The record is a 130-nucleotide sequence from a Sphingobacteriales bacterium, which matches "SAM riboswitch aptamer (S box leader)" in Rfam. Rfam describes the family as follows. The SAM riboswitch is found upstream of a number of genes which code for proteins involved in methionine or cysteine biosynthesis in Gram-positive bacteria. The SAM riboswitch acts at the level of transcription termination control. The predicted structure consists of a complex stem-loop region followed by a single stem loop terminator region. An alternative and mutually exclusive form involves bases in the 3' segment of helix 1 with those in the 5' region of helix 5 to form a structure termed the anti-terminator form. This entry represents the conserved core of the complex structure involving helices 1-4. Rfam links the family to the GO term regulation of gene expression.
[Rfam]
RNA sequence: CUGUUAUCCAGAAAGGUGGAGGGAUUAGACCCUGCGAAGCCUUAGCAACCCUUUGCCAUUUGCGCAGAGAAGGUGCUACAUUCUACCUGCAACCGCCGGAUGUUCCGGAUGUUGCAAGGACAAAUAACCC
Numbered sequence: 001c002u003g004u005u006a007u008c009c010a011g012a013a014a015g016g017u018g019g020a021g022g023g024a025u026u027a028g029a030c031c032c033u034g035c036g037a038a039g040c041c042u043u044a045g046c047a048a049c050c051c052u053u054u055g056c057c058a059u060u061u062g063c064g065c066a067g068a069g070a071a072g073g074u075g076c077u078a079c080a081u082u083c084u085a086c087c088u089g090c091a092a093c094c095g096c097c098g099g100a101u102g103u104u105c106c107g108g109a110u111g112u113u114g115c116a117a118g119g120a121c122a123a124a125u126a127a128c129c130c
Stems, first nucleotide, its partner, number of pairs: 003128005013043005021032003026085004044077004049073002051069006081122001086119003